[Rfam]
RNA sequence: AAGCCUAAUGGCCAUAGUAGGAGGGGUAAUCUAUCUGGGGAAGUUGGUGGUUCUUCUUCCUCCUUGCCCUCAGGUGCACAGACUGGGGAGUGGAUAGAUAAUGACUAUGGAGACAGCUU
Numbered sequence: 001a002a003g004c005c006u007a008a009u010g011g012c013c014a015u016a017g018u019a020g021g022a023g024g025g026g027u028a029a030u031c032u033a034u035c036u037g038g039g040g041a042a043g044u045u046g047g048u049g050g051u052u053c054u055u056c057u058u059c060c061u062c063c064u065u066g067c068c069c070u071c072a073g074g075u076g077c078a079c080a081g082a083c084u085g086g087g088g089a090g091u092g093g094a095u096a097g098a099u100a101a102u103g104a105c106u107a108u109g110g111a112g113a114c115a116g117c118u119u
Base pairs, nucleotide, nucleotide: 001119002118003117004116012110013109014108015107016106017105018104020102029099030098031097032096033095034094035093036092038062039061040060041058042057043056046053047052067090069088070087074083075082
Annotation: A member of the RNA family "Aureusvirus cap-independent translation element" from Aureusvirus aurei, 119 nucleotides long. By type it is a cis-regulatory element.